mir-1 microRNA precursor family: a 103-nucleotide sequence from Mytilus galloprovincialis. It scores 48 bits against the family's covariance model. On this family, see Lee and Ambros, Science 2001: "An extensive class of small RNAs in Caenorhabditis elegans". This family represents the microRNA (miRNA) mir-1 family. miRNAs are transcribed as ~70nt precursors (modelled here) and subsequently processed by the Dicer enzyme to give a ~22nt product. In this case the mature sequence comes from the 3' arm of the precursor. The extents of the hairpin precursors are not generally known and are estimated based on hairpin prediction. The products are thought to have regulatory roles through complementarity to mRNA. The involvement of Dicer in miRNA processing suggests a relationship with the phenomenon of RNA interference. miRNAs are numbered based on the sequence of the mature RNA. This family also contains the mir-206 from human, which appears to be related to mir-1.

RNA sequence: ACUGAGUCAAUAUACUUCUUUCAGGUCAAUAUUAUACAAAUAUAGCCUUUGUAUGAGGUCGAUACAAGGAUAUAUUGACCUGAAAGAAGUAUAUUGACUGAGG
Numbered sequence: 001a002c003u004g005a006g007u008c009a010a011u012a013u014a015c016u017u018c019u020u021u022c023a024g025g026u027c028a029a030u031a032u033u034a035u036a037c038a039a040a041u042a043u044a045g046c047c048u049u050u051g052u053a054u055g056a057g058g059u060c061g062a063u064a065c066a067a068g069g070a071u072a073u074a075u076u077g078a079c080c081u082g083a084a085a086g087a088a089g090u091a092u093a094u095u096g097a098c099u100g101a102g103g
Base pairs, nucleotide, nucleotide: 007097008096009095010094011093012092013091014090015089016088017087018086019085020084021083022082023081024080025079027077028076029075030074031073